RNA sequence: AUAAUGAUACUUCCGCUCAGCCACAACUCAUCGUAAUGGGAGCGGCCCGGCGAGAUCCGCGGGGAGGUGUAGCCUAUGG
Numbered sequence: 001a002u003a004a005u006g007a008u009a010c011u012u013c014c015g016c017u018c019a020g021c022c023a024c025a026a027c028u029c030a031u032c033g034u035a036a037u038g039g040g041a042g043c044g045g046c047c048c049g050g051c052g053a054g055a056u057c058c059g060c061g062g063g064g065a066g067g068u069g070u071a072g073c074c075u076a077u078g079g
Stems, first nucleotide, its partner, number of pairs: 012076001013045006046064003050060003065075003
Dot-bracket structure: ...........(((((((.....................))))))(((.(((.....))).)))(((.....))))...
The family of this 79-nucleotide sequence from Butyrivibrio sp. ob235 is "pemK RNA". The source organism's lineage runs through Bacteria, Bacillota, Lachnospirales, Lachnospiraceae and Butyrivibrio. By type it is a cis-regulatory element.